[Rfam]
RNA sequence: AUCUUAUCAAGAGAGGCGGAGGGACUGGCCCAAUGACGCCCGGCAACCGGUGAAAGCACGGUGCCAAUUCCAGCGGGGGGUUACCCCUGUAAAGAUAAGAA
Numbered sequence: 001a002u003c004u005u006a007u008c009a010a011g012a013g014a015g016g017c018g019g020a021g022g023g024a025c026u027g028g029c030c031c032a033a034u035g036a037c038g039c040c041c042g043g044c045a046a047c048c049g050g051u052g053a054a055a056g057c058a059c060g061g062u063g064c065c066a067a068u069u070c071c072a073g074c075g076g077g078g079g080g081u082u083a084c085c086c087c088u089g090u091a092a093a094g095a096u097a098a099g100a101a
Stems, first nucleotide, its partner, number of pairs: 002100007013041001015040003021031003025073004042065004047061002049057001051055001069093001074089006